[Rfam]
RNA sequence: GGAUGUGAGGGCGACCUGGCUGCGACAUCUGUCACCCCGUUGAUGGCCAGGGUUGAUCGGGCUGAUCUGGCUGCCAGGCGGGUGUCCCCUUCCUCCCUCACCACUCCGUGUGCGUCCCUCCCGAAGCUGUGCGCUCGGUCGAAGAGGACAACCUUCCCCGAUUAGAGGCGUCCCGUUCAUCAGUCAAGGGUAUACGGUAGCUGCGCUCCCCUGCUAGAACCUCCAAACAAGCUGAAGCUCAAGGUUCAUAAUGCUGAUUUGGGGGAUAACUGUAAAACACGAUAUUUUUUUUGCUUUAAAUUGCUGAUAUUUGCUGUCUGGAUU
Numbered sequence: 001g002g003a004u005g006u007g008a009g010g011g012c013g014a015c016c017u018g019g020c021u022g023c024g025a026c027a028u029c030u031g032u033c034a035c036c037c038c039g040u041u042g043a044u045g046g047c048c049a050g051g052g053u054u055g056a057u058c059g060g061g062c063u064g065a066u067c068u069g070g071c072u073g074c075c076a077g078g079c080g081g082g083u084g085u086c087c088c089c090u091u092c093c094u095c096c097c098u099c100a101c102c103a104c105u106c107c108g109u110g111u112g113c114g115u116c117c118c119u120c121c122c123g124a125a126g127c128u129g130u131g132c133g134c135u136c137g138g139u140c141g142a143a144g145a146g147g148a149c150a151a152c153c154u155u156c157c158c159c160g161a162u163u164a165g166a167g168g169c170g171u172c173c174c175g176u177u178c179a180u181c182a183g184u185c186a187a188g189g190g191u192a193u194a195c196g197g198u199a200g201c202u203g204c205g206c207u208c209c210c211c212u213g214c215u216a217g218a219a220c221c222u223c224c225a226a227a228c229a230a231g232c233u234g235a236a237g238c239u240c241a242a243g244g245u246u247c248a249u250a251a252u253g254c255u256g257a258u259u260u261g262g263g264g265g266a267u268a269a270c271u272g273u274a275a276a277a278c279a280c281g282a283u284a285u286u287u288u289u290u291u292u293g294c295u296u297u298a299a300a301u302u303g304c305u306g307a308u309a310u311u312u313g314c315u316g317u318c319u320g321g322a323u324u
Stems, first nucleotide, its partner, number of pairs: 001107003005101007013092002018089002024086010035073001037070003042067003046062003116170001117168004121138004126134002139161003146157003200271001202269001206265002209262002213258001298324002301321002303317002306314001
The family of this 324-nucleotide RNA sequence from Podilymbus podiceps is "7SK RNA". The base pairs follow the family's consensus structure, which is taken from published work. The organism belongs to Podilymbus, within Eukaryota. The literature on the family includes a 2002 paper in Curr Biol by Blencowe, "Transcription: surprising role for an elusive small nuclear RNA". By type it is a non-coding RNA gene. The family is grouped with related families in Rfam's "7SK clan". About the family: 7SK was discovered as an abundant small nuclear RNA in the mid-70s but a possible function has only recently been suggested. Two independent studies have found that 7SK RNA binds the CDK9/cyclin T complex (known as elongation factor P-TEFb). P-TEFb activates transcription by phosphorylating the C-terminal domain of RNA polymerase II. This process is negatively regulated by the 7SK RNP. The secondary structure of 7SK RNA shown here was proposed by Wasserman and Steitz on the basis of chemical modification and enzymatic cleavage experiments. This family contains a number of annotated pseudogenes and 7SK derived repeats. The match comes from Rfam's covariance-model search (218 bits).